This 96-nucleotide RNA from Cannabis sativa belongs to the Rfam family "Small nucleolar RNA Z157/R69/R10". Rfam 15.1 lists 836 matches to the family in 232 species.
RNA sequence: AAGAGUGUGGUGAUGAUACAAUUUUGUGGACUAGAGUUUCUGAUCUGGGAAAUACUCAGAAUCUGAUUACAAACCCUUGGCUGUCUGAGCACCCUU
Numbered sequence: 001a002a003g004a005g006u007g008u009g010g011u012g013a014u015g016a017u018a019c020a021a022u023u024u025u026g027u028g029g030a031c032u033a034g035a036g037u038u039u040c041u042g043a044u045c046u047g048g049g050a051a052a053u054a055c056u057c058a059g060a061a062u063c064u065g066a067u068u069a070c071a072a073a074c075c076c077u078u079g080g081c082u083g084u085c086u087g088a089g090c091a092c093c094c095u096u
Base pairs, nucleotide, nucleotide: 001096002095003094005092006091007090008089039066040065044061045059046058047057048056049055